A member of the RNA family "SAM (S-adenosyl methionine) riboswitch aptamer" from Nocardia stercoris, 112 nucleotides long. SAM-IV is a mRNA element that regulates gene expression via direct sensing of S-adenosylmethionine (SAM or AdoMet). The family is grouped with related families in Rfam's "SAM clan". A search with the family's covariance model found it, with a score of 92 bits.
[Rfam]
RNA sequence: GGUCAUGAGCGCCAGCGCCAAGCCCCGGCUCGCUGGACGGCAACCCUCCUUGUAGCGGCGGGGUGCUCCGGGUGAUGACCGGGCUCUCGACGGCCGAGAGCAAGCGCGACAG
Number, nucleotide and partner (000 for none) at each position: 001g080002g079003u078004c077005a000006u000007g000008a000009g038010c000011g000012c036013c035014a034015g033016c032017g000018c000019c000020a000021a030022g029023c000024c000025c000026c000027g000028g000029c022030u021031c000032g016033c015034u014035g013036g012037a000038c009039g067040g066041c065042a000043a000044c063045c062046c061047u000048c058049c057050u000051u000052g000053u000054a000055g000056c000057g049058g048059c000060g000061g046062g045063g044064u000065g041066c040067u039068c000069c000070g000071g000072g000073u000074g000075a000076u000077g004078a003079c002080c001081g000082g000083g101084c100085u099086c098087u097088c096089g095090a000091c000092g000093g000094c000095c089096g088097a087098g086099a085100g084101c083102a000103a000104g000105c000106g000107c000108g000109a000110c000111a000112g000